[Rfam]
RNA sequence: CUCCGCGAAGCUCAAACCCACACACGUAUCGACACGAUGACCUGGGUGCCGAAGGCUUUGUGCCAGAGGUUGGAUCAUUGGGAUGCGUGGAGGCCUAAC
Numbered sequence: 001c002u003c004c005g006c007g008a009a010g011c012u013c014a015a016a017c018c019c020a021c022a023c024a025c026g027u028a029u030c031g032a033c034a035c036g037a038u039g040a041c042c043u044g045g046g047u048g049c050c051g052a053a054g055g056c057u058u059u060g061u062g063c064c065a066g067a068g069g070u071u072g073g074a075u076c077a078u079u080g081g082g083a084u085g086c087g088u089g090g091a092g093g094c095c096u097a098a099c
Base pairs, nucleotide, nucleotide: 023089024088025087026086027085028084029083030082035080036079037078038077039076041073042072048070049069050068

This 99-nucleotide sequence from Pseudomonas sp. URIL14HWK12:I9 belongs to the Rfam family "t44 RNA". Pairs were carried over by alignment from the consensus structure, which was predicted with LocARNA. A search with the family's covariance model found it, with a score of 64 bits.